RNA sequence: UCGCGAAGUGGAGAUGGCAUUCUCCGUCAACCGCCCACGAGGCUGAUAAUGCCUGCAAGCCU
Numbered sequence: 001u002c003g004c005g006a007a008g009u010g011g012a013g014a015u016g017g018c019a020u021u022c023u024c025c026g027u028c029a030a031c032c033g034c035c036c037a038c039g040a041g042g043c044u045g046a047u048a049a050u051g052c053c054u055g056c057a058a059g060c061c062u
Base pairs, nucleotide, nucleotide: 010025011024012023013022016053017052018051019050020049021048033043034042035041
The record is a 62-nucleotide RNA sequence from Paraburkholderia sp. DHOC27, which matches "Fluoride riboswitch aptamer (crcB RNA motif)" in Rfam. The base pairs follow the family's consensus structure, which is taken from published work.